[Rfam]
The family of this 88-nucleotide RNA from Cocos nucifera is "Small nucleolar RNA Z162". Taxonomically the source falls in Cocos (Eukaryota, Mesangiospermae, Petrosaviidae, Arecaceae). A reference for the family is Chen et al. (2003), "The high diversity of snoRNAs in plants: identification and comparative study of 120 snoRNA genes from Oryza sativa", Nucleic Acids Res. The match comes from Rfam's covariance-model search (56 bits). Pairs were carried over by alignment from the consensus structure, which was predicted with PFOLD. Rfam links the family to the GO terms RNA processing and nucleolus. Rfam classes the family as a C/D-box small nucleolar RNA.
Nucleotides: 088
Base pairs, nucleotide, nucleotide: 004086005085006084007083008082010076011075012074013073014072039047041045
Number, partner (000 for none) and nucleotide at each position: 001000c002000u003000g004086g005085g006084c007083a008082c009000a010076a011075u012074g013073a014072g015000g016000a017000a018000g019000u020000c021000a022000u023000u024000u025000a026000g027000u028000g029000a030000u031000u032000g033000a034000g035000g036000g037000a038000g039047g040000u041045c042000a043000a044000a045041g046000u047039c048000c049000a050000a051000u052000g053000a054000g055000u056000a057000u058000a059000c060000a061000u062000u063000u064000u065000a066000g067000u068000c069000c070000u071000u072014u073013u074012c075011a076010u077000u078000c079000u080000g081000a082008g083007u084006g085005c086004c087000c088000a